Record summary
MIR168 microRNA precursor family: a 124-nucleotide RNA sequence from Trifolium pratense. A reference for the family is Reinhart et al. (2002), "MicroRNAs in plants", Genes Dev. The organism belongs to Trifolium, within Eukaryota.
RNA sequence: CGCUUCGCGGUCUCUAAUUCGCUUGGUGCAGGUCGGGAACCAAUACAUCUGCCGUUAUCGUGACAAUUACCGGCGGAUAAUUGGUUCCCGCCUUGCAUCAACUGAAUCCGAGGCCGCGGUGAAG
Numbered sequence: 001c002g003c004u005u006c007g008c009g010g011u012c013u014c015u016a017a018u019u020c021g022c023u024u025g026g027u028g029c030a031g032g033u034c035g036g037g038a039a040c041c042a043a044u045a046c047a048u049c050u051g052c053c054g055u056u057a058u059c060g061u062g063a064c065a066a067u068u069a070c071c072g073g074c075g076g077a078u079a080a081u082u083g084g085u086u087c088c089c090g091c092c093u094u095g096c097a098u099c100a101a102c103u104g105a106a107u108c109c110g111a112g113g114c115c116g117c118g119g120u121g122a123a124g
Stems, first nucleotide, its partner, number of pairs: 013111002017107004023101010034090005040084002